[Rfam]
RNA sequence: UAAGGCGCUAUAGCCAAGUGGUUACGGCGACAGAUUAGAAUCAUAUGAUCUGUUCCUCUUUGAGGGCGCAGGUUCGAGUCCUGCUGGCGUCGCUUUGUUUU
Numbered sequence: 001u002a003a004g005g006c007g008c009u010a011u012a013g014c015c016a017a018g019u020g021g022u023u024a025c026g027g028c029g030a031c032a033g034a035u036u037a038g039a040a041u042c043a044u045a046u047g048a049u050c051u052g053u054u055c056c057u058c059u060u061u062g063a064g065g066g067c068g069c070a071g072g073u074u075c076g077a078g079u080c081c082u083g084c085u086g087g088c089g090u091c092g093c094u095u096u097g098u099u100u101u
Stems, first nucleotide, its partner, number of pairs: 002096006013088004018084004028076003

Shown here is a 101-nucleotide RNA sequence from Rhodonia placenta, a member of the family "Vault RNA".
Pairs were carried over by alignment from the consensus structure, which is taken from published work.
NCBI's taxonomy places the organism under Eukaryota, Basidiomycota, Agaricomycotina, Adustoporiaceae, Rhodonia placenta.